The family of this 224-nucleotide sequence from Pelecanoides urinatrix is "Group II catalytic intron D1-D4-6".
It scores 167 bits against the family's covariance model.
[Rfam]
RNA sequence: AAAGUCCCUACGAGAGAAGUUAUGGCGAAACACCUCGACCUCGAGUCAUGCGUGAUACAUCGUGAGGUGUAUGGCGAAGCGUUGGCAGGGGAAAUCAGCAGGCCAGCCAUUGAGCCGCGAAAUCAUGAGUCCGGGGCGCCGACACUGUUAUGCGAAGCGGAAGGCCACAGUGUGUAUGACGAUAAUCGCAAGUCAUGCUACACGCCCUGCGCGGUCGUAGACCC
Numbered sequence: 001a002a003a004g005u006c007c008c009u010a011c012g013a014g015a016g017a018a019g020u021u022a023u024g025g026c027g028a029a030a031c032a033c034c035u036c037g038a039c040c041u042c043g044a045g046u047c048a049u050g051c052g053u054g055a056u057a058c059a060u061c062g063u064g065a066g067g068u069g070u071a072u073g074g075c076g077a078a079g080c081g082u083u084g085g086c087a088g089g090g091g092a093a094a095u096c097a098g099c100a101g102g103c104c105a106g107c108c109a110u111u112g113a114g115c116c117g118c119g120a121a122a123u124c125a126u127g128a129g130u131c132c133g134g135g136g137c138g139c140c141g142a143c144a145c146u147g148u149u150a151u152g153c154g155a156a157g158c159g160g161a162a163g164g165c166c167a168c169a170g171u172g173u174g175u176a177u178g179a180c181g182a183u184a185a186u187c188g189c190a191a192g193u194c195a196u197g198c199u200a201c202a203c204g205c206c207c208u209g210c211g212c213g214g215u216c217g218u219a220g221a222c223c224c
Stems, first nucleotide, its partner, number of pairs: 011037004019031003023191001025189002039091004045086004049081002051076003055072007112216001114215006132209006138165003143159001145157002170203004174198007
The organism belongs to Pelecanoides, within Eukaryota.